[Rfam]
RNA: Plant signal recognition particle RNA
RNA sequence: GCCGAGCUGGUUAGCGUCAGCUUGUGACCCAAGCGAGGGCGAGUGAGGUGAUGGAACUUGAUUCAGAUCCACAUGGUAGGGCUAGGGGUUGCAGUUUACUGGUUUGCCCGUUCCAAGAUGGGAGUUGGUUUGGAUGGGUUUGGCGAAGGCCAGCCCAAACAGCCCCUAGAGAGGAGGGCACUGCGUUAGGCUGGCUUCACAGAGCAGCGAACACUUCCUGCUCUCAGCAGUGGAAGGAUAACAAGCCAGGGCACCAAUGGCUCAUCCGUUGCCCUGUGGUCUGAGCUCAGUUGGACCAUUACCUUU
Numbered sequence: 001g002c003c004g005a006g007c008u009g010g011u012u013a014g015c016g017u018c019a020g021c022u023u024g025u026g027a028c029c030c031a032a033g034c035g036a037g038g039g040c041g042a043g044u045g046a047g048g049u050g051a052u053g054g055a056a057c058u059u060g061a062u063u064c065a066g067a068u069c070c071a072c073a074u075g076g077u078a079g080g081g082c083u084a085g086g087g088g089u090u091g092c093a094g095u096u097u098a099c100u101g102g103u104u105u106g107c108c109c110g111u112u113c114c115a116a117g118a119u120g121g122g123a124g125u126u127g128g129u130u131u132g133g134a135u136g137g138g139u140u141u142g143g144c145g146a147a148g149g150c151c152a153g154c155c156c157a158a159a160c161a162g163c164c165c166c167u168a169g170a171g172a173g174g175a176g177g178g179c180a181c182u183g184c185g186u187u188a189g190g191c192u193g194g195c196u197u198c199a200c201a202g203a204g205c206a207g208c209g210a211a212c213a214c215u216u217c218c219u220g221c222u223c224u225c226a227g228c229a230g231u232g233g234a235a236g237g238a239u240a241a242c243a244a245g246c247c248a249g250g251g252c253a254c255c256a257a258u259g260g261c262u263c264a265u266c267c268g269u270u271g272c273c274c275u276g277u278g279g280u281c282u283g284a285g286c287u288c289a290g291u292u293g294g295a296c297c298a299u300u301a302c303c304u305u306u
Stems, first nucleotide, its partner, number of pairs: 001040003004023008028037001030035001045305010057293001059289003062285006069279005075273004079263006087255001090253002099249008108237002111235005117228001119226007127165002130162003135157006142151003166171001172219006182211001184209003191202003